[Rfam]
RNA: Fungal signal recognition particle RNA
RNA sequence: AAUCUGUCACGGAUAACCUAGUGGAAGGUCAGCCGCCAAGUCCGCAACCUUGCUUCGGCUCACGCCAGCAAGAAAGGUGCCCGGUACGAAUCCUGGGGUCGUCAUUGUACUCGUGCGAGUAAUCCACGAUCGCUACAAGGCGCUAAGCAAUGGAAGUGACCCUUGAGGGAAGCAAUUCUGCAGAGACUCCUCCACCCUGGGGUGGCGUCGCCGGAUUACACCAUCUUGUUACAGGGGCGUUGACUACUUGGCUGAACAACUACAUCUCUU
Dot-bracket structure: .(((.......)))......((((..(.(((((.(...(((.(((..(((((....(((....)))..(((((..((((.((((((((.(((((((((.(.((..((((.(((((.((....)))))))....)))).)).)(...)...((((.(.....(((....(((....)))....)))...).)))))))))))))..))).)))))....)))).)))))...))))))))...)))...).))))).)..)))).......